[Rfam]
RNA sequence: CAUCGUGUUGAGCAAAACCGAGCGAAAGCCGGUGGCGCAAAGCUAUGGGUCUAAGGCCAGUUAAAAGAGGCUAUGAUUGCCAGGCUGCAAGG
Numbered sequence: 001c002a003u004c005g006u007g008u009u010g011a012g013c014a015a016a017a018c019c020g021a022g023c024g025a026a027a028g029c030c031g032g033u034g035g036c037g038c039a040a041a042g043c044u045a046u047g048g049g050u051c052u053a054a055g056g057c058c059a060g061u062u063a064a065a066a067g068a069g070g071c072u073a074u075g076a077u078u079g080c081c082a083g084g085c086u087g088c089a090a091g092g
Base pairs, nucleotide, nucleotide: 012038013037017033018032019031020030022029023028041086042085043084044083046082047081048080049077050076051075056071057070058069